[Rfam]
The family of this 59-nucleotide RNA sequence from Streptomyces sp. BA2 is "Actino-pnp RNA". The match comes from Rfam's covariance-model search (62 bits). Lineage of the source: Bacteria > Bacillati > Actinomycetota > Streptomycetaceae > Streptomyces.
RNA sequence: GCCGAUCUUCGGUAGUGGCUUCCGGGCGAAACCCCCGGGAGCUUCGAUCGAAGACCGGC
Dot-bracket structure: ((((.((.(((((...((((((((((.(...).))))))))))...))))).)).))))

Pairs were carried over by alignment from the consensus structure, which is taken from published work.